Shown here is a 37-nucleotide RNA sequence from Propionibacterium australiense, a member of the family "msiK RNA". It is annotated as a cis-regulatory element. Pairs were carried over by alignment from the consensus structure, which is taken from published work. It scores 46 bits against the family's covariance model.

RNA sequence: UCUACUACGGAUCGUCGGGCACGUUCCUGCCCGUGGA
Numbered sequence: 001u002c003u004a005c006u007a008c009g010g011a012u013c014g015u016c017g018g019g020c021a022c023g024u025u026c027c028u029g030c031c032c033g034u035g036g037a
Stems, first nucleotide, its partner, number of pairs: 001037004016033006